[Rfam]
This 144-nucleotide sequence from Aspergillus steynii belongs to the Rfam family "A. fumigatus sRNA Afu_254". Lineage of the source: Eukaryota > Fungi > Eurotiomycetidae > Eurotiales > Aspergillus steynii.
RNA sequence: CUACAAAACCCCAUCCAUUUUCCACCAAGGAACGACCGUUCAUCCCAACCUUUCGGCCACUAUGUCUCCCUGCUCGUGCAACUGCUGCUCCGGCGAGUGCAACGCCUGCUCCUGCAGCAGCUGCAAGGUAAGCCAGCAUGCAAC
Numbered sequence: 001c002u003a004c005a006a007a008a009c010c011c012c013a014u015c016c017a018u019u020u021u022c023c024a025c026c027a028a029g030g031a032a033c034g035a036c037c038g039u040u041c042a043u044c045c046c047a048a049c050c051u052u053u054c055g056g057c058c059a060c061u062a063u064g065u066c067u068c069c070c071u072g073c074u075c076g077u078g079c080a081a082c083u084g085c086u087g088c089u090c091c092g093g094c095g096a097g098u099g100c101a102a103c104g105c106c107u108g109c110u111c112c113u114g115c116a117g118c119a120g121c122u123g124c125a126a127g128g129u130a131a132g133c134c135a136g137c138a139u140g141c142a143a144c
Stems, first nucleotide, its partner, number of pairs: 071095004078088003099124003108115002